[Rfam]
RNA sequence: GCCGCGCCUAUCCCGGCCAGGAGAAAAGCGGGCACCCUACCCGCCUGGCGUGGCCUUCCCAAUUAGGG
Numbered sequence: 001g002c003c004g005c006g007c008c009u010a011u012c013c014c015g016g017c018c019a020g021g022a023g024a025a026a027a028g029c030g031g032g033c034a035c036c037c038u039a040c041c042c043g044c045c046u047g048g049c050g051u052g053g054c055c056u057u058c059c060c061a062a063u064u065a066g067g068g
Base pairs, nucleotide, nucleotide: 001054002053003052004051005050006049007048008047011022012021013020028044029043030042031041032040035068036067037066038065039064
The record is a 68-nucleotide RNA from Marinobacter nauticus, which matches "int-alpA RNA" in Rfam. The family's consensus secondary structure is taken from published work. NCBI's taxonomy places the organism under Bacteria, Pseudomonadota, Gammaproteobacteria, Marinobacter, Marinobacter nauticus. It is annotated as a small RNA. Rfam's curators put it in the seed alignment. Rfam's curators write: Acidobacteria (1 example), Planctomycetes (1 example), Proteobacteria.